[Rfam]
The family of this 128-nucleotide RNA is "Caenorhabditis sRNA ceN56". The match comes from Rfam's covariance-model search (122 bits). Rfam 15.1 lists 10 matches to the family in 10 species. Pairs were carried over by alignment from the consensus structure, which was predicted with CMfinder.
RNA sequence: CGCCCGGUGAUAUCAACUAUUCGCUGAUUCCUGCCCACCCGAAAGUCUCGAGAAUCGGAGUGGGGUCCGAGUUGAGGACGGACCGACAACGGUGGGAACCGUGAUACUGAUUAUGAGAGAUGAGGGCU
Number, nucleotide and partner (000 for none) at each position: 001c000002g127003c126004c125005c124006g000007g000008u000009g000010a000011u000012a000013u000014c000015a000016a000017c000018u000019a000020u000021u000022c000023g000024c000025u000026g000027a000028u000029u000030c000031c000032u000033g000034c096035c095036c094037a093038c092039c091040c000041g000042a000043a000044a000045g083046u082047c081048u077049c076050g000051a000052g073053a072054a000055u000056c000057g068058g067059a066060g000061u000062g000063g000064g000065g000066u059067c058068c057069g000070a000071g000072u053073u052074g000075a000076g049077g048078a000079c000080g000081g047082a046083c045084c000085g000086a000087c000088a000089a000090c000091g039092g038093u037094g036095g035096g034097a000098a000099c000100c115101g114102u113103g112104a111105u110106a000107c000108u000109g000110a105111u104112u103113a102114u101115g100116a000117g000118a000119g000120a000121u000122g000123a000124g005125g004126g003127c002128u000